RNA sequence: GUCCAGCAUUAGGGGUGCCAAUUGAUAAGUUGGCUGAGAGGAUCACCCAACCCUUUGAACCUGAUCUCAUUAGUCUGAGCGGAGGAAAAUGUGUCAAUUGUUAU
Numbered sequence: 001g002u003c004c005a006g007c008a009u010u011a012g013g014g015g016u017g018c019c020a021a022u023u024g025a026u027a028a029g030u031u032g033g034c035u036g037a038g039a040g041g042a043u044c045a046c047c048c049a050a051c052c053c054u055u056u057g058a059a060c061c062u063g064a065u066c067u068c069a070u071u072a073g074u075c076u077g078a079g080c081g082g083a084g085g086a087a088a089a090u091g092u093g094u095c096a097a098u099u100g101u102u103a104u
Base pairs, nucleotide, nucleotide: 006092007091008090009089010088011054012053013052014051017034018033019032020031021030041047060085061084062083066079067078068077069076
RNA: TPP riboswitch aptamer (THI element)
Organism: Legionella pneumophila